[Rfam]
RNA: FMN riboswitch aptamer (RFN element)
RNA sequence: AAGGGUCUUCGGGGCAGGGUGAAACUCCCGACCGGCGGUGAUUCUUUGGAUAAGUCCGCGAGCGCAAGCUGAUGAGGUGUAAUUCCUCAACCGACAGUAUAGUCUGGAUGGAAGAAGACCAGU
Numbered sequence: 001a002a003g004g005g006u007c008u009u010c011g012g013g014g015c016a017g018g019g020u021g022a023a024a025c026u027c028c029c030g031a032c033c034g035g036c037g038g039u040g041a042u043u044c045u046u047u048g049g050a051u052a053a054g055u056c057c058g059c060g061a062g063c064g065c066a067a068g069c070u071g072a073u074g075a076g077g078u079g080u081a082a083u084u085c086c087u088c089a090a091c092c093g094a095c096a097g098u099a100u101a102g103u104c105u106g107g108a109u110g111g112a113a114g115a116a117g118a119c120c121a122g123u
Base pairs, nucleotide, nucleotide: 004120005119006118007117008116009115010114017029018028019027031103032102033093034092035059036058037057038056054091055090062069063068073089074088075087076086077085095106096105097104